[Rfam]
RNA sequence: AUGAAAACAACUCCUAAUAUCAUCUACGGUAGUGGGGGACCCAAUGGUAGGGGUGAAUCUUUAAUUUAAGAAGGGCGGCUUGGAAGCCCUAACCCGUCAGCUAACCUCAUAGGAGUCACCAAGCGUAUGA
Dot-bracket structure: ..........((((...(((........)))((((((....(.......)(((.....(((......)))..((((.........))))...))).........)))))).))))...............

Overview: Rfam assigns this 130-nucleotide RNA sequence from Anaerocolumna aminovalerica to the family "c-di-AMP riboswitch aptamer (ydaO/yuaA leader)". The base pairs follow the family's consensus structure. The organism belongs to Anaerocolumna, within Bacteria.